[Rfam]
Nucleotides: 140
Stems, first nucleotide, its partner, number of pairs: 020043005051090005056081006065072002097114006117133003
Number, partner (000 for none) and nucleotide at each position: 001000c002000a003000g004000u005000c006000g007000g008000u009000g010000g011000a012000a013000g014000u015000c016000c017000g018000a019000c020043c021042g022041g023040g024039g025000c026000u027000a028000a029000g030000a031000g032000a033000c034000u035000c036000a037000a038000g039024c040023c041022c042021u043020g044000u045000a046000g047000c048000u049000u050000g051090g052089g053088a054087g055086g056081c057080g058079c059078c060077g061076u062000g063000g064000c065072g066071c067000g068000a069000g070000a071066g072065c073000a074000a075000g076061g077060c078059g079058g080057u081056g082000g083000a084000g085000c086055c087054c088053u089052c090051c091000g092000a093000c094000a095000a096000c097114a098113u099112u100111c101110u102109c103000a104000g105000a106000a107000a108000g109102g110101a111100g112099g113098a114097u115000g116000c117133g118132c119131a120000a121000c122000g123000c124000a125000c126000c127000a128000g129000g130000u131119u132118g133117c134000a135000a136000c137000g138000u139000g140000c